Shown here is a 182-nucleotide sequence from Bacillus sp. V3-13, a member of the family "Lysine riboswitch aptamer". Its family is annotated with lysine biosynthetic process in the Gene Ontology.
[Rfam]
RNA sequence: CGGUGAGGUAGAGGUUGCGGCAAUUAAGAGUAGCUUUUUCUGAGGUCUGGUGGGAUCUGUGACGGAAAGUGAAAGGGAUUGCCGCCGAAGUAUGGAUGGACCCACACAGCCAUUCACGCUGGGACUGCAUCGAAUAGGUGCAGGACUGUCCCGGAUUUAUUCUGGGGAGAGCUAUCACGAGA
Numbered sequence: 001c002g003g004u005g006a007g008g009u010a011g012a013g014g015u016u017g018c019g020g021c022a023a024u025u026a027a028g029a030g031u032a033g034c035u036u037u038u039u040c041u042g043a044g045g046u047c048u049g050g051u052g053g054g055a056u057c058u059g060u061g062a063c064g065g066a067a068a069g070u071g072a073a074a075g076g077g078a079u080u081g082c083c084g085c086c087g088a089a090g091u092a093u094g095g096a097u098g099g100a101c102c103c104a105c106a107c108a109g110c111c112a113u114u115c116a117c118g119c120u121g122g123g124a125c126u127g128c129a130u131c132g133a134a135u136a137g138g139u140g141c142a143g144g145a146c147u148g149u150c151c152c153g154g155a156u157u158u159a160u161u162c163u164g165g166g167g168a169g170a171g172c173u174a175u176c177a178c179g180a181g182a
Stems, first nucleotide, its partner, number of pairs: 007176005017085009033070006040064001089120003093116007121147002125143007149167007